[Rfam]
RNA sequence: UCCUCGUUCAACAAAUCGCCAUUCGGAGCUCACACACGGAGACGCUGCGAGCUCGUCUUCGCAGCGUCUCUCCUCCAAGCUCUGGGAGAAAGUCCCCGGACGUCUCGUUUCAUCGAGAAUGCGGAAACGCGCCGCCAUAAAAGCACUGCGGCUGACCUCGGCCGCCCAGGCCCUCUCCCUGCACCGGCCCUGUUCCGCUGCUCGACCUUUACAAAGCAAACCGGCCUCACGUGGGUGCUCACGCCCCCGGUCCUCUUGGAUGACGAUAUGAGUCCGAGCCGGUGGGAUGUGGCAGUCGCUUCGAGCCGGUAUGCUGCGUGAGGGGAGGCGGGCAGACGUUUGGUGCUCGUGGGUGUGGCGUCGGGCGCCGAGGACUUGUUGUCGAGGUUGAUAGGUAUGCGAUUGCUCGGCGAAAGCUGGGUUACUCAAUGGGGCUCAUUCUUGACGCGAGG
Numbered sequence: 001u002c003c004u005c006g007u008u009c010a011a012c013a014a015a016u017c018g019c020c021a022u023u024c025g026g027a028g029c030u031c032a033c034a035c036a037c038g039g040a041g042a043c044g045c046u047g048c049g050a051g052c053u054c055g056u057c058u059u060c061g062c063a064g065c066g067u068c069u070c071u072c073c074u075c076c077a078a079g080c081u082c083u084g085g086g087a088g089a090a091a092g093u094c095c096c097c098g099g100a101c102g103u104c105u106c107g108u109u110u111c112a113u114c115g116a117g118a119a120u121g122c123g124g125a126a127a128c129g130c131g132c133c134g135c136c137a138u139a140a141a142a143g144c145a146c147u148g149c150g151g152c153u154g155a156c157c158u159c160g161g162c163c164g165c166c167c168a169g170g171c172c173c174u175c176u177c178c179c180u181g182c183a184c185c186g187g188c189c190c191u192g193u194u195c196c197g198c199u200g201c202u203c204g205a206c207c208u209u210u211a212c213a214a215a216g217c218a219a220a221c222c223g224g225c226c227u228c229a230c231g232u233g234g235g236u237g238c239u240c241a242c243g244c245c246c247c248c249g250g251u252c253c254u255c256u257u258g259g260a261u262g263a264c265g266a267u268a269u270g271a272g273u274c275c276g277a278g279c280c281g282g283u284g285g286g287a288u289g290u291g292g293c294a295g296u297c298g299c300u301u302c303g304a305g306c307c308g309g310u311a312u313g314c315u316g317c318g319u320g321a322g323g324g325g326a327g328g329c330g331g332g333c334a335g336a337c338g339u340u341u342g343g344u345g346c347u348c349g350u351g352g353g354u355g356u357g358g359c360g361u362c363g364g365g366c367g368c369c370g371a372g373g374a375c376u377u378g379u380u381g382u383c384g385a386g387g388u389u390g391a392u393a394g395g396u397a398u399g400c401g402a403u404u405g406c407u408c409g410g411c412g413a414a415a416g417c418u419g420g421g422u423u424a425c426u427c428a429a430u431g432g433g434g435c436u437c438a439u440u441c442u443u444g445a446c447g448c449g450a451g452g
Base pairs, nucleotide, nucleotide: 002452003451004450005449006448007447008445009444010443011442014404015403016402017401018400019399023086024084025083026082027081028080029079039070040069041068042067043066044065045064046063047062048061049060050059051058091436092435094434095433096432097431120131121130122129123128233248234247235246237244238243250375251374252373256371257370258369259368264363265362266361274360345356346355348353406421407420408419409418410417411416